[Rfam]
Rfam assigns this 92-nucleotide part of an RNA from Drosophila yakuba to the family "Eukaryotic large subunit ribosomal RNA". Its Rfam clan is "LSU clan". Pairs were carried over by alignment from the consensus structure, which is taken from published work. The sequence is in the family's curated seed alignment.
RNA sequence: UGGCUUGUGAAGCAAAAUUCACCAAGCGUAGGAUUGUUCACCCAUGCAAGGGAACGUGAGCUGGGUUUAGACCGUCGUGAGACAGGUUAGUU
Numbered sequence: 001u002g003g004c005u006u007g008u009g010a011a012g013c014a015a016a017a018u019u020c021a022c023c024a025a026g027c028g029u030a031g032g033a034u035u036g037u038u039c040a041c042c043c044a045u046g047c048a049a050g051g052g053a054a055c056g057u058g059a060g061c062u063g064g065g066u067u068u069a070g071a072c073c074g075u076c077g078u079g080a081g082a083c084a085g086g087u088u089a090g091u092u
Base pairs, nucleotide, nucleotide: 001064002062003061004060005059007022008021009020010019011018031043032042034040070088071087072086073085074083075082076081